This 85-nucleotide RNA sequence from Glycine max belongs to the Rfam family "Small nucleolar RNA Z159/U59". Rfam links the family to the GO terms RNA processing and nucleolus. On this family, see Chen et al., Nucleic Acids Res 2003: "The high diversity of snoRNAs in plants: identification and comparative study of 120 snoRNA genes from Oryza sativa".

RNA sequence: GCCUCUGAGGAUGAUGAGAAAAUAUAACUUUCAUUCUUCCGAGUUUCCCAUGAGGAAAGUACAUGGAGACCUGAACUGAAGAGGC
Numbered sequence: 001g002c003c004u005c006u007g008a009g010g011a012u013g014a015u016g017a018g019a020a021a022a023u024a025u026a027a028c029u030u031u032c033a034u035u036c037u038u039c040c041g042a043g044u045u046u047c048c049c050a051u052g053a054g055g056a057a058a059g060u061a062c063a064u065g066g067a068g069a070c071c072u073g074a075a076c077u078g079a080a081g082a083g084g085c
Base pairs, nucleotide, nucleotide: 003083004082005081006080
Dot-bracket structure: ..((((.........................................................................))))..